Source information: A member of the RNA family "U11 spliceosomal RNA" from Myotis lucifugus, 133 nucleotides long. The family is grouped with related families in Rfam's "U1 clan". The match comes from Rfam's covariance-model search (90 bits). It is annotated as a spliceosomal small nuclear RNA.
RNA sequence: UAAAAGAGCUUCUGUCGUGAGUGGCACACGUAGGGCAGCUUGAUUGCUCUGUGUGCAGAAUCGACAUCAAGAGAUUUCCGAAGCAUGAUUUUUUGUGUCUGAGCAGCUGGUGAUCGUUGGCCCUGAUGCCCAC
Number, nucleotide and partner (000 for none) at each position: 001u000002a000003a000004a000005a000006g000007a000008g084009c083010u082011u081012c080013u026014g025015u024016c023017g022018u000019g000020a000021g000022u017023g016024g015025c014026a013027c055028a054029c053030g052031u051032a050033g049034g048035g047036c046037a045038g044039c000040u000041u000042g000043a000044u038045u037046g036047c035048u034049c033050u032051g031052u030053g029054u028055g027056c000057a000058g077059a076060a075061u074062c073063g000064a000065c000066a000067u000068c000069a000070a000071g000072a000073g062074a061075u060076u059077u058078c000079c000080g012081a011082a010083g009084c008085a000086u000087g000088a000089u000090u000091u000092u000093u000094u000095g000096u000097g000098u000099c000100u000101g131102a000103g129104c128105a000106g127107c000108u125109g124110g123111u000112g122113a000114u120115c119116g000117u000118u000119g115120g114121c000122c112123c110124u109125g108126a000127u106128g104129c103130c000131c101132a000133c000